[Rfam]
RNA sequence: CAUGUCGCACUGUCGUGCGGGAUGAGAACCUGCGUUCAGGUUCGAGCCGAGCGCAGCGAGACAGCGUUGCCGUACGGCAACGACCCGAAGGGCGAGGCCACAGGCCGAGUCAUCCUGCUAAAAAAAAUA
Numbered sequence: 001c002a003u004g005u006c007g008c009a010c011u012g013u014c015g016u017g018c019g020g021g022a023u024g025a026g027a028a029c030c031u032g033c034g035u036u037c038a039g040g041u042u043c044g045a046g047c048c049g050a051g052c053g054c055a056g057c058g059a060g061a062c063a064g065c066g067u068u069g070c071c072g073u074a075c076g077g078c079a080a081c082g083a084c085c086c087g088a089a090g091g092g093c094g095a096g097g098c099c100a101c102a103g104g105c106c107g108a109g110u111c112a113u114c115c116u117g118c119u120a121a122a123a124a125a126a127a128u129a
Stems, first nucleotide, its partner, number of pairs: 017118005023112001033094002036092002041089004048058002065082006
Dot-bracket structure: ................(((((.(.........((.((...((((...((.......))......((((((......))))))...)))).)))).................).)))))...........
Rfam assigns this 129-nucleotide RNA from Biostraticola tofi to the family "RtT RNA". The match comes from Rfam's covariance-model search (92 bits). The family's consensus secondary structure is taken from published work. Lineage of the source: Bacteria > Pseudomonadati > Pseudomonadota > Gammaproteobacteria > Biostraticola. A reference for the family is Bosl and Kersten (1991), "A novel RNA product of the tyrT operon of Escherichia coli", Nucleic Acids Res. About the family: This family represents a bacterial cis-regulatory element known as RtT RNA. The exact function of RtT is unknown although it is thought that it may be involved in changing the cellular response in relation to amino acid starvation.